RNA sequence: GGCGGGCCUCCCCGCAUUGUAAAGUAGCCAAUCUGGUCAGAUGCGGAAGCAAGCAGCCACAACUAUUGCGCAAGUGCCGGGGGCAAGGCUCGCCUCC
Numbered sequence: 001g002g003c004g005g006g007c008c009u010c011c012c013c014g015c016a017u018u019g020u021a022a023a024g025u026a027g028c029c030a031a032u033c034u035g036g037u038c039a040g041a042u043g044c045g046g047a048a049g050c051a052a053g054c055a056g057c058c059a060c061a062a063c064u065a066u067u068g069c070g071c072a073a074g075u076g077c078c079g080g081g082g083g084c085a086a087g088g089c090u091c092g093c094c095u096c097c
Base pairs, nucleotide, nucleotide: 004091005090006089007088008087009083010082011081012080013079014078015074017073018072019071020070023067024066025065026064027063034059035058036057037056042051043050044049
Bacterial small signal recognition particle RNA: a 97-nucleotide RNA from Methylotenera sp. The signal recognition particle (SRP) is a universally conserved ribonucleoprotein involved in the co-translational targeting of proteins to membranes. The family's consensus secondary structure is taken from published work. The organism belongs to Methylotenera, within Bacteria.